[Rfam]
RNA sequence: GAAGGCUGAAAGACAUGGGUAGUGGAGAUGUGGCCCUCAAGUGAUCAUCUCACUACCUUGUCUUUCACGCUUUA
Numbered sequence: 001g002a003a004g005g006c007u008g009a010a011a012g013a014c015a016u017g018g019g020u021a022g023u024g025g026a027g028a029u030g031u032g033g034c035c036c037u038c039a040a041g042u043g044a045u046c047a048u049c050u051c052a053c054u055a056c057c058u059u060g061u062c063u064u065u066c067a068c069g070c071u072u073u074a
Stems, first nucleotide, its partner, number of pairs: 008066008017058003021054004026050005
Notes
A member of the RNA family "mir-71 microRNA precursor family" from Folsomia candida, 74 nucleotides long. Taxonomically the source falls in Folsomia (Eukaryota, Opisthokonta, Protostomia, Altocrustacea). On this family, see Li et al., BMC Genomics 2009: "Direct sequencing and expression analysis of a large number of miRNAs in Aedes aegypti and a multi-species survey of novel mosquito miRNAs". The base pairs follow the family's consensus structure, which was predicted with RNAalifold. It scores 62 bits against the family's covariance model.